Notes: mir-255 microRNA precursor family: a 65-nucleotide sequence from Mesorhabditis spiculigera. The literature on the family includes a 2006 paper in Cell by Ruby et al., "Large-scale sequencing reveals 21U-RNAs and additional microRNAs and endogenous siRNAs in C. elegans". Taxonomically the source falls in Mesorhabditis (Eukaryota, Metazoa, Protostomia, Rhabditidae).
[Rfam]
RNA sequence: GUAAGAAAUCUGCUCAGUUUUACGUGGCCCUUGUCAUCUGUUAAAACUGAAAAGAUUUGUUACAG
Numbered sequence: 001g002u003a004a005g006a007a008a009u010c011u012g013c014u015c016a017g018u019u020u021u022a023c024g025u026g027g028c029c030c031u032u033g034u035c036a037u038c039u040g041u042u043a044a045a046a047c048u049g050a051a052a053a054g055a056u057u058u059g060u061u062a063c064a065g
Stems, first nucleotide, its partner, number of pairs: 001063004006058006015049008023040001